Record summary
This 121-nucleotide sequence from Kaistia hirudinis belongs to the Rfam family "Alphaproteobacterial ar14". The organism belongs to Kaistia, within Bacteria. Pairs were carried over by alignment from the consensus structure. Rfam describes the family as follows. Smr14C2 was renamed NfeR1 (Nodule Formation Efficiency RNA) highly expressed in salt stress and during the symbiotic interaction on legume roots.

[Rfam]
RNA sequence: AGAAUUCGCCGGGACGAACCUCCUCCCUCGUCCCCGCGAUACGGCGCAAAGCGAACCUCCUCCCUCGCUGAGCGCCCUCAAAAGAAACGCCCGUCGACCUCCUCCCCGACGGGCGUUUUCU
Number, nucleotide and partner (000 for none) at each position: 001a000002g000003a000004a000005u000006u000007c038008g037009c036010c000011g034012g033013g032014a031015c030016g029017a028018a000019c000020c000021u000022c000023c000024u000025c000026c000027c000028u017029c016030g015031u014032c013033c012034c011035c000036g009037c008038g007039a000040u000041a000042c000043g076044g075045c074046g073047c072048a000049a000050a069051g068052c067053g000054a000055a000056c000057c000058u000059c000060c000061u000062c000063c000064c000065u000066c000067g052068c051069u050070g000071a000072g047073c046074g045075c044076c043077c000078u000079c000080a000081a000082a000083a000084g000085a000086a000087a116088c115089g114090c113091c112092c111093g110094u109095c108096g107097a000098c000099c000100u000101c000102c000103u000104c000105c000106c000107c096108g095109a094110c093111g092112g091113g090114c089115g088116u087117u000118u000119u000120c000121u000

It scores 82 bits against the family's covariance model.